[Rfam]
RNA: Arthropod 7SK RNA
RNA sequence: GGAAGUGUGUGCUAGUGAUGGCACAGCUGAACAUUGAUCGCUAACGUUAGAUAAAGGCAGAUCUGCUCAGUGGGUGUUGUCACGUGGUCGCUUCAAGUAGCUUGUGUACGACUCCCGAUUGCGCGUACAUUUGCCCUGUGCGCCGGCACGGUUGAGUCCUCACGUGGCUCCUCGAACUACCGCGAUUUCCAAAUUGGGGGGCAAUCGAAUAGGUCAGACGAGGUAAUUUGUCGCUUCCAUAUACAGGCACUGCGGACGCAGUUUGCCAUGUUUUUUA
Numbered sequence: 001g002g003a004a005g006u007g008u009g010u011g012c013u014a015g016u017g018a019u020g021g022c023a024c025a026g027c028u029g030a031a032c033a034u035u036g037a038u039c040g041c042u043a044a045c046g047u048u049a050g051a052u053a054a055a056g057g058c059a060g061a062u063c064u065g066c067u068c069a070g071u072g073g074g075u076g077u078u079g080u081c082a083c084g085u086g087g088u089c090g091c092u093u094c095a096a097g098u099a100g101c102u103u104g105u106g107u108a109c110g111a112c113u114c115c116c117g118a119u120u121g122c123g124c125g126u127a128c129a130u131u132u133g134c135c136c137u138g139u140g141c142g143c144c145g146g147c148a149c150g151g152u153u154g155a156g157u158c159c160u161c162a163c164g165u166g167g168c169u170c171c172u173c174g175a176a177c178u179a180c181c182g183c184g185a186u187u188u189c190c191a192a193a194u195u196g197g198g199g200g201g202c203a204a205u206c207g208a209a210u211a212g213g214u215c216a217g218a219c220g221a222g223g224u225a226a227u228u229u230g231u232c233g234c235u236u237c238c239a240u241a242u243a244c245a246g247g248c249a250c251u252g253c254g255g256a257c258g259c260a261g262u263u264u265g266c267c268a269u270g271u272u273u274u275u276u277a
Base pairs, nucleotide, nucleotide: 001238002237003236004235005234006233007232015083016082017081018080019079027070028069029068032065033064036063037062038061039060040058041057042056246267247266248265249262250261251260252259253258